RNA sequence: UUAGCUCUCUUUGCCUUUUGGCUUAGAUCAAGUGUAGUAUCUGUUCUUUUCAGUUUAAUCUCUGAAAUUGGUCUACGGACCUUUUAUUGAUUAAAUCAAUUUUUACAAUUGUUGGGUUGUCUCUGGGCUUGCUCAUGCUUCCUGGCACUGUGUCACUGGCCUUACACUGCCGCUGGUUGAUGCGAACUUCCU
Number, nucleotide and partner (000 for none) at each position: 001u000002u000003a000004g000005c000006u000007c000008u027009c026010u025011u000012u000013g022014c021015c020016u000017u000018u000019u000020g015021g014022c013023u000024u000025a010026g009027a008028u000029c000030a000031a000032g000033u000034g000035u000036a000037g000038u000039a000040u000041c000042u000043g000044u000045u000046c000047u000048u067049u066050u065051c064052a063053g062054u000055u000056u000057a000058a000059u000060c000061u000062c053063u052064g051065a050066a049067a048068u000069u000070g081071g080072u079073c078074u000075a000076c000077g000078g073079a072080c071081c070082u000083u000084u000085u000086a000087u000088u000089g000090a000091u000092u000093a000094a000095a000096u000097c000098a000099a000100u000101u000102u000103u000104u000105a000106c000107a000108a000109u000110u000111g000112u145113u144114g143115g142116g141117u000118u000119g138120u000121c000122u000123c000124u135125g134126g133127g132128c000129u000130u000131g000132c127133u126134c125135a124136u000137g000138c119139u000140u000141c116142c115143u114144g113145g112146c000147a000148c000149u184150g183151u182152g181153u180154c000155a177156c176157u175158g174159g173160c172161c000162u000163u000164a000165c000166a000167c000168u000169g000170c000171c000172g160173c159174u158175g157176g156177u155178u000179g000180a153181u152182g151183c150184g149185a000186a000187c000188u000189u000190c000191c000192u000
Background
U2 spliceosomal RNA: a 192-nucleotide sequence from Letharia lupina. Clan: U2 clan. U2 is a small nuclear RNA (snRNA) component of the spliceosome (involved in pre-mRNA splicing). Complementary binding between U2 snRNA (in an area lying towards the 5' end but 3' to hairpin I) and the branchpoint sequence (BPS) of the intron results the bulging out of an unpaired adenosine, on the BPS, which initiates a nucleophilic attack at the intronic 5' splice site, thus starting the first of two transesterification reactions that mediate splicing. It is annotated as a spliceosomal small nuclear RNA. Pairs were carried over by alignment from the consensus structure, which is taken from published work.